[Rfam]
RNA sequence: GAAGUUUCCCUCAGGAUAGCAGUAACGUUUUCAGUUUUAUGAGGUAAAGCGAAUGAUUAGAGGCCUUGGGGUUGAAACAACCUUAACCUAUUCUCAAACUUUAAAUAUGUAAGAAGUCCUUGUUACUUAGUUGAACGUGGACAUUUGAAUGCACCGUUACUAGUGGGCCAUUUUUGGUAAGCAGAACUGGCGAUGCGGGAUGAACCGAACGCGAGGUUAAGGUGCCGGAAUGUACGCUCAUCAGACACCACGGGUACAUCGAAUUGUGGUGUCGUACGUCCCACGUGGCCUAUAGGCCAUUAUGGGAAAAGAGUCCUUUAUAGGGGCAAGGUCUUUGAUCAAUAGGGAUCCGCUAUGUAUUUAGCCUACCCUCCGCCGUUAUUUAACGGCCCACAGAUCAAGCAGAGGCCGGUGGCUCAGAGUUGAAGCCGCUUAAGAUAUGAUCGGCUUU
Dot-bracket structure: ....(.(((....))).)..(((((((.......(((((((.....(((....(((..(.(((..((((((.(.....).))))))))).)..)))..)).).....))))))).((((.((((.........)))).))))............))))))).....((((.(((((.....))))).))))....(.(......................................................................................................................................................................................................................................................).)....
Numbered sequence: 001g002a003a004g005u006u007u008c009c010c011u012c013a014g015g016a017u018a019g020c021a022g023u024a025a026c027g028u029u030u031u032c033a034g035u036u037u038u039a040u041g042a043g044g045u046a047a048a049g050c051g052a053a054u055g056a057u058u059a060g061a062g063g064c065c066u067u068g069g070g071g072u073u074g075a076a077a078c079a080a081c082c083u084u085a086a087c088c089u090a091u092u093c094u095c096a097a098a099c100u101u102u103a104a105a106u107a108u109g110u111a112a113g114a115a116g117u118c119c120u121u122g123u124u125a126c127u128u129a130g131u132u133g134a135a136c137g138u139g140g141a142c143a144u145u146u147g148a149a150u151g152c153a154c155c156g157u158u159a160c161u162a163g164u165g166g167g168c169c170a171u172u173u174u175u176g177g178u179a180a181g182c183a184g185a186a187c188u189g190g191c192g193a194u195g196c197g198g199g200a201u202g203a204a205c206c207g208a209a210c211g212c213g214a215g216g217u218u219a220a221g222g223u224g225c226c227g228g229a230a231u232g233u234a235c236g237c238u239c240a241u242c243a244g245a246c247a248c249c250a251c252g253g254g255u256a257c258a259u260c261g262a263a264u265u266g267u268g269g270u271g272u273c274g275u276a277c278g279u280c281c282c283a284c285g286u287g288g289c290c291u292a293u294a295g296g297c298c299a300u301u302a303u304g305g306g307a308a309a310a311g312a313g314u315c316c317u318u319u320a321u322a323g324g325g326g327c328a329a330g331g332u333c334u335u336u337g338a339u340c341a342a343u344a345g346g347g348a349u350c351c352g353c354u355a356u357g358u359a360u361u362u363a364g365c366c367u368a369c370c371c372u373c374c375g376c377c378g379u380u381a382u383u384u385a386a387c388g389g390c391c392c393a394c395a396g397a398u399c400a401a402g403c404a405g406a407g408g409c410c411g412g413u414g415g416c417u418c419a420g421a422g423u424u425g426a427a428g429c430c431g432c433u434u435a436a437g438a439u440a441u442g443a444u445c446g447g448c449u450u451u
Stems, first nucleotide, its partner, number of pairs: 005018001007016003021161007035114007047102001048100002054096003059091001061089003066086006073079001116142004121137004167191004172186005196447001198445001